[Rfam]
RNA sequence: CAACAACGGACAGAGCUUCUUUCGCCAGGUUUGGACCUGAGUCCACUGAGGGGGGGCCGAGAGCACGGAGAGGGCCGGGACCACCUCCAGGGGUGGUUGUGGAUUUCCGCCUUCUUGCAAGAGCCUGGGCUAGUCAGUUUAUGAGGAACAGGUGUCCCGGACUCGCUUCCGGGCGGUGAGUCGUGGGGUGGGUGCUGGCGUGCAGACGAAGUAUGCGAAGCGUGGACCAGAGCUGCUACUGAUUCGAGGGCUCCAUGUCCGAUCCUGCCGUCUCUACUCUCGCUUGCAUCUGUCUGGGGUAACUUCACGCCGUGGGAAGCAUGGCUUCGGGACCCAUCUCGAGUUGGAGUCAGAGCUUCGUGCUCGUCUGGGCCUGUCGAACACGGCGGGGCUGCUUUCUCGGCCGAUUCGAGCUCGGGAAGAGAUGCUGCAGACGGACAGUUUCUGGGGGGGAGGCGAGCUUUCCUCGUGGUGGCAGCUCUUUGGACAAGGGACGGGGCUUUGUGGUUAAGCCGUCCCGGCUGCUCUCUCGCCUGGAAGAUGGUGCAGAGAGCAGCCCUCCUGGUUUUGAGG
Numbered sequence: 001c002a003a004c005a006a007c008g009g010a011c012a013g014a015g016c017u018u019c020u021u022u023c024g025c026c027a028g029g030u031u032u033g034g035a036c037c038u039g040a041g042u043c044c045a046c047u048g049a050g051g052g053g054g055g056g057c058c059g060a061g062a063g064c065a066c067g068g069a070g071a072g073g074g075c076c077g078g079g080a081c082c083a084c085c086u087c088c089a090g091g092g093g094u095g096g097u098u099g100u101g102g103a104u105u106u107c108c109g110c111c112u113u114c115u116u117g118c119a120a121g122a123g124c125c126u127g128g129g130c131u132a133g134u135c136a137g138u139u140u141a142u143g144a145g146g147a148a149c150a151g152g153u154g155u156c157c158c159g160g161a162c163u164c165g166c167u168u169c170c171g172g173g174c175g176g177u178g179a180g181u182c183g184u185g186g187g188g189u190g191g192g193u194g195c196u197g198g199c200g201u202g203c204a205g206a207c208g209a210a211g212u213a214u215g216c217g218a219a220g221c222g223u224g225g226a227c228c229a230g231a232g233c234u235g236c237u238a239c240u241g242a243u244u245c246g247a248g249g250g251c252u253c254c255a256u257g258u259c260c261g262a263u264c265c266u267g268c269c270g271u272c273u274c275u276a277c278u279c280u281c282g283c284u285u286g287c288a289u290c291u292g293u294c295u296g297g298g299g300u301a302a303c304u305u306c307a308c309g310c311c312g313u314g315g316g317a318a319g320c321a322u323g324g325c326u327u328c329g330g331g332a333c334c335c336a337u338c339u340c341g342a343g344u345u346g347g348a349g350u351c352a353g354a355g356c357u358u359c360g361u362g363c364u365c366g367u368c369u370g371g372g373c374c375u376g377u378c379g380a381a382c383a384c385g386g387c388g389g390g391g392c393u394g395c396u397u398u399c400u401c402g403g404c405c406g407a408u409u410c411g412a413g414c415u416c417g418g419g420a421a422g423a424g425a426u427g428c429u430g431c432a433g434a435c436g437g438a439c440a441g442u443u444u445c446u447g448g449g450g451g452g453g454a455g456g457c458g459a460g461c462u463u464u465c466c467u468c469g470u471g472g473u474g475g476c477a478g479c480u481c482u483u484u485g486g487a488c489a490a491g492g493g494a495c496g497g498g499g500c501u502u503u504g505u506g507g508u509u510a511a512g513c514c515g516u517c518c519c520g521g522c523u524g525c526u527c528u529c530u531c532g533c534c535u536g537g538a539a540g541a542u543g544g545u546g547c548a549g550a551g552a553g554c555a556g557c558c559c560u561c562c563u564g565g566u567u568u569u570g571a572g573g
Stems, first nucleotide, its partner, number of pairs: 331351003334347003353365004
Dot-bracket structure: ..........................................................................................................................................................................................................................................................................................................................................((((((........))).))).((((.....))))................................................................................................................................................................................................................
RNA: Ascomycota telomerase RNA, nucleotides 1188 to 1760